[Rfam]
A member of the RNA family "Glycine riboswitch aptamer" from Isoptericola variabilis, 105 nucleotides long.

RNA sequence: CGAACCGCGACGGGAGAGCUCGGCGGACCUGGCAGCAGGGCCGUCGGCGCCGAAGGAGCAAACCCUCCCCGGGAAUCUCUCAGGCCCCCGUACCGCCGCGGUGAG
Numbered sequence: 001c002g003a004a005c006c007g008c009g010a011c012g013g014g015a016g017a018g019c020u021c022g023g024c025g026g027a028c029c030u031g032g033c034a035g036c037a038g039g040g041c042c043g044u045c046g047g048c049g050c051c052g053a054a055g056g057a058g059c060a061a062a063c064c065c066u067c068c069c070c071g072g073g074a075a076u077c078u079c080u081c082a083g084g085c086c087c088c089c090g091u092a093c094c095g096c097c098g099c100g101g102u103g104a105g
Stems, first nucleotide, its partner, number of pairs: 006100004011095003020047007049085003052081002056079003063071001